RNA sequence: UUGGCUUCCCUCCUACGGUUCAUUAGCUUUGCACUCUGUUCAUGUGUGCUAGUUAAUAUAAAAUGUGAAGCCUACAAAUUCUGUUCCCCUCGCUAUCCGGUGCGGUUGCUAGUGUUGCAUUUGGACGUUGGGGAGCUACAUUU
Numbered sequence: 001u002u003g004g005c006u007u008c009c010c011u012c013c014u015a016c017g018g019u020u021c022a023u024u025a026g027c028u029u030u031g032c033a034c035u036c037u038g039u040u041c042a043u044g045u046g047u048g049c050u051a052g053u054u055a056a057u058a059u060a061a062a063a064u065g066u067g068a069a070g071c072c073u074a075c076a077a078a079u080u081c082u083g084u085u086c087c088c089c090u091c092g093c094u095a096u097c098c099g100g101u102g103c104g105g106u107u108g109c110u111a112g113u114g115u116u117g118c119a120u121u122u123g124g125a126c127g128u129u130g131g132g133g134a135g136c137u138a139c140a141u142u143u
Stems, first nucleotide, its partner, number of pairs: 002074001003072003008067001010065001011062001014060002017057001024055004030048001033047002083136007091127002096125005
Background
Rfam assigns this 143-nucleotide RNA from Tripterygium wilfordii to the family "Small nucleolar RNA snoR136". The match comes from Rfam's covariance-model search (64 bits). Its family is annotated with RNA processing and nucleolus in the Gene Ontology. The family's RNA type in Rfam is H/ACA-box small nucleolar RNA. The organism belongs to Tripterygium, within Eukaryota.